[Rfam]
About this RNA: The family of this 110-nucleotide RNA from Frankineae bacterium MT45 is "SAM (S-adenosyl methionine) riboswitch aptamer". The family's consensus secondary structure is taken from published work. Rfam describes the family as follows. SAM-IV is a mRNA element that regulates gene expression via direct sensing of S-adenosylmethionine (SAM or AdoMet). SAM-IV riboswitches share conserved nucleotide positions with the previously described SAM-I riboswitches sequence analysis and molecular recognition experiments suggest that SAM-I and SAM-IV riboswitches share similar ligand binding sites, but have different scaffolds. The source organism's lineage runs through Bacteria, Bacillati, Actinomycetota, Actinomycetes and Frankiales. Its Rfam clan is "SAM clan". It scores 98 bits against the family's covariance model. On this family, see Weinberg et al., RNA 2008: "The aptamer core of SAM-IV riboswitches mimics the ligand-binding site of SAM-I riboswitches".
RNA sequence: GGUUAUGAGCGUCAGCGAAAAGCCCUGGCUUGCUGACCGGCAACCCUCCACGCGGUGGGGUGCUCCAGGUGACGACCGGACACCGGCGAACGUCGGUGUAAGCGCGAGGC
Number, nucleotide and partner (000 for none) at each position: 001g077002g076003u075004u074005a000006u000007g000008a000009g038010c000011g037012u036013c035014a034015g033016c032017g000018a000019a000020a000021a030022g029023c000024c000025c000026u000027g000028g000029c022030u021031u000032g016033c015034u014035g013036a012037c011038c009039g064040g063041c062042a000043a000044c060045c059046c058047u000048c055049c054050a000051c000052g000053c000054g049055g048056u000057g000058g046059g045060g044061u000062g041063c040064u039065c000066c000067a000068g000069g000070u000071g000072a000073c000074g004075a003076c002077c001078g000079g000080a099081c098082a097083c096084c095085g094086g093087c092088g000089a000090a000091c000092g087093u086094c085095g084096g083097u082098g081099u080100a000101a000102g000103c000104g000105c000106g000107a000108g000109g000110c000